Rfam assigns this 308-nucleotide RNA sequence from Musa troglodytarum to the family "Plant signal recognition particle RNA". Rfam classes the family as a non-coding RNA gene. NCBI's taxonomy places the organism under Eukaryota, Euphyllophyta, commelinids, Zingiberales, Musa. A reference for the family is Rosenblad et al. (2003), "SRPDB: Signal Recognition Particle Database", Nucleic Acids Res. The match comes from Rfam's covariance-model search (184 bits). Rfam 15.1 lists 4,988 matches to the family in 266 species.

RNA sequence: GGUGAGCUUGGUAGCUUUGGCUUGUAACCCGAGCGGGGGCCCCGAGGUAAUGGAAUGGCGUGUUAAGCUCGCCUGGGUUGGGUGCAACUGUCCUGAAUGCAGCUUGCCCGUUUCAAGUUAGGCAGUUUGAGUUGUGUGGCCCGGGUGAAGGCUUGGGCUUUAUAAUCUCUUGAAGUGGAGGACACCGCGUCAGGCUGGCUUCACAGAGCAACGAACACCUCCCGCUCUUGACGGUGAAGGGAUAAUAGGUUGUAGUACGCCGCACUCACCAUGCCCACCUGGCUAACACCGAUCAAACCAUUACCUUU
Number, nucleotide and partner (000 for none) at each position: 001g040002g000003u038004g023005a022006g021007c020008u019009u000010g017011g016012u000013a000014g000015c000016u011017u010018u000019g008020g007021c006022u005023u004024g000025u000026a000027a000028c037029c036030c035031g000032a000033g000034c000035g030036g029037g028038g003039g000040c001041c000042c000043c000044g307045a306046g305047g304048u303049a302050a301051u300052g299053g298054a000055a000056u295057g294058g000059c291060g290061u288062g287063u286064u285065a284066a000067g000068c000069u282070c281071g280072c000073c000074u277075g276076g275077g274078u273079u000080g267081g266082g265083u264084g263085c262086a000087a000088c000089u259090g258091u257092c000093c255094u254095g000096a000097a000098u000099g253100c252101a251102g250103c249104u248105u247106g246107c000108c241109c240110g000111u239112u238113u237114c236115a235116a000117g232118u231119u230120a229121g228122g227123c000124a226125g225126u224127u000128u000129g168130a000131g166132u165133u164134g163135u162136g161137u000138g159139g158140c157141c156142c155143g154144g153145g152146u151147g000148a000149a000150g000151g146152c145153u144154u143155g142156g141157g140158c139159u138160u000161u136162a135163u134164a133165a132166u131167c000168u129169c175170u174171u000172g000173a000174a170175g169176u000177g222178g221179a220180g219181g218182a000183c000184a000185c000186c000187g000188c213189g212190u211191c000192a000193g000194g000195c206196u205197g204198g000199c000200u000201u000202c000203a000204c197205a196206g195207a000208g000209c000210a000211a190212c189213g188214a000215a000216c000217a000218c181219c180220u179221c178222c177223c000224g126225c125226u124227c122228u121229u120230g119231a118232c117233g000234g000235u115236g114237a113238a112239g111240g109241g108242a000243u000244a000245a000246u106247a105248g104249g103250u102251u101252g100253u099254a094255g093256u000257a091258c090259g089260c000261c000262g085263c084264a083265c082266u081267c080268a000269c000270c000271a000272u000273g078274c077275c076276c075277a074278c000279c000280u071281g070282g069283c000284u065285a064286a063287c062288a061289c000290c060291g059292a000293u000294c057295a056296a000297a000298c053299c052300a051301u050302u049303a048304c047305c046306u045307u044308u000